[Rfam]
RNA sequence: UCAUGUAGAAGCAUCCGGCUGGUUCAGCUUCGGUCGGGUGUGGAGUGCUGCUUGGGCAAGCGCUGCCGCAGGCUGAAUAGGGAUAUCCCGAAAGAAAGCGU
Dot-bracket structure: .(((......(((((((((((..[[[[...)))))))))))...)))............(((..........]]]]...(((....))).........)))
Rfam assigns this 101-nucleotide RNA to the family "drum RNA".
Rfam describes the family as follows. Firmicutes, Bacteroidetes (1 example), Proteobacteria (2 examples), Spirochaetes (2 examples).
Rfam's curators put it in the seed alignment.
The family's RNA type in Rfam is small RNA.